[Rfam]
Rfam assigns this 128-nucleotide sequence to the family "THF (Tetrahydrofolate) riboswitch aptamer".
On this family, see Huang et al., Proc Natl Acad Sci U S A 2011: "Long-range pseudoknot interactions dictate the regulatory response in the tetrahydrofolate riboswitch".
From the family's description: Tetrahydrofolate (THF) riboswitch was first reported for Ames et al. as an RNA motif in 5' untranslated (5'-UTR)regions of folate transport and biosynthesis genes in Firmicutes genomes.
RNA sequence: GGCAGAGUAAGCUUCCGUGCGUGAAGUGCCGAGUGGACAGGGAGUUGUCACUCGGACGAAGAGACAGGAAGGCGAUGAGUCUGUCAUCGCCAUCCCGUCUCGCGGUACGGAAGCUGCAUCCCGCUGCU
Numbered sequence: 001g002g003c004a005g006a007g008u009a010a011g012c013u014u015c016c017g018u019g020c021g022u023g024a025a026g027u028g029c030c031g032a033g034u035g036g037a038c039a040g041g042g043a044g045u046u047g048u049c050a051c052u053c054g055g056a057c058g059a060a061g062a063g064a065c066a067g068g069a070a071g072g073c074g075a076u077g078a079g080u081c082u083g084u085c086a087u088c089g090c091c092a093u094c095c096c097g098u099c100u101c102g103c104g105g106u107a108c109g110g111a112a113g114c115u116g117c118a119u120c121c122c123g124c125u126g127c128u
Stems, first nucleotide, its partner, number of pairs: 001128001003126003010115010020104003026057002029055008040121003044117001061101004